Source information
Rfam assigns this 395-nucleotide RNA from Jannaschia helgolandensis to the family "Bacterial RNase P class A". By type it is a ribozyme.

RNA sequence: GCGGGGGGCCGGACGGCCGCCUGCGGGGGGAAACCCUUGCGGGAGGAAAGUCCGGACUCCACAAAGCGACGGUGCCGGGUAACGCCCGGGCGGGGUAACCCGACGGACAGCGCCACAGAGAACAGACCGCCUUCGCGACAUUGCUCUGCAAUGGACGGGGGUCAGGGUGAAACGGUGGGGUAAGAGCCCACCGGGGGGGCGGCAACGUUCCCCGCAUGGCAAGCCCCACCGGGAGCAAUGCCAAAUAGGGACCCCGCGCCUUCGGGCAUCGGUGCUUUGCCGAAGGGGUCCGGGUUGGCAGCUGGAGGCCGCGAAGCGAUUCGCGGUCCAGAGGAAUGGUCGUCGAACCGGAGCGAUCCGGGGAACAGAAUCCGGCUUACAGGCUCCCCGCACAU
Number, nucleotide and partner (000 for none) at each position: 001g391002c390003g389004g388005g387006g386007g385008g384009c383010c382011g380012g344013a343014c342015g341016g340017c339018c338019g000020c043021c042022u041023g040024c039025g038026g037027g036028g035029g000030g000031a000032a000033a000034c000035c028036c027037u026038u025039g024040c023041g022042g021043g020044a000045g000046g000047a000048a378049a377050g376051u000052c375053c374054g373055g372056a371057c235058u234059c233060c232061a000062c000063a000064a000065a278066g277067c000068g275069a000070c231071g230072g229073u228074g227075c089076c088077g087078g086079g085080u000081a000082a000083c000084g000085c079086c078087c077088g076089g075090g104091c102092g101093g100094g099095g000096u000097a000098a000099c094100c093101c092102g091103a000104c090105g226106g225107a000108c000109a000110g224111c223112g220113c219114c218115a000116c000117a000118g000119a000120g000121a000122a000123c000124a000125g000126a000127c166128c165129g162130c161131c160132u159133u158134c157135g156136c000137g000138a000139c000140a000141u000142u000143g000144c000145u000146c000147u000148g000149c000150a000151a000152u000153g000154g000155a000156c135157g134158g133159g132160g131161g130162u129163c000164a000165g128166g127167g000168u000169g000170a000171a000172a000173c000174g192175g191176u190177g189178g188179g187180g000181u000182a000183a000184g000185a000186g000187c179188c178189c177190a176191c175192c174193g215194g213195g212196g211197g210198g209199g208200c207201g206202g000203c000204a000205a000206c201207g200208u199209u198210c197211c196212c195213c194214g000215c193216a000217u000218g114219g113220c112221a000222a000223g111224c110225c106226c105227c074228a073229c072230c071231g070232g060233g059234a058235g057236c000237a000238a000239u300240g299241c298242c297243a000244a000245a000246u000247a000248g000249g291250g290251a289252c288253c287254c286255c000256g000257c000258g000259c000260c000261u000262u000263c000264g000265g000266g000267c000268a000269u283270c282271g281272g280273u279274g000275c068276u000277u066278u065279g273280c272281c271282g270283a269284a000285g000286g254287g253288g252289u251290c250291c249292g000293g000294g000295u000296u000297g242298g241299c240300a239301g000302c000303u000304g000305g000306a000307g000308g327309c326310c325311g324312c323313g322314a321315a320316g000317c000318g000319a000320u315321u314322c313323g312324c311325g310326g309327u308328c000329c000330a000331g000332a000333g000334g000335a000336a000337u000338g018339g017340u016341c015342g014343u013344c012345g000346a000347a000348c000349c000350g000351g000352a000353g000354c000355g000356a000357u000358c000359c000360g000361g000362g000363g000364a000365a000366c000367a000368g000369a000370a000371u056372c055373c054374g053375g052376c050377u049378u048379a000380c011381a000382g010383g009384c008385u007386c006387c005388c004389c003390g002391c001392a000393c000394a000395u000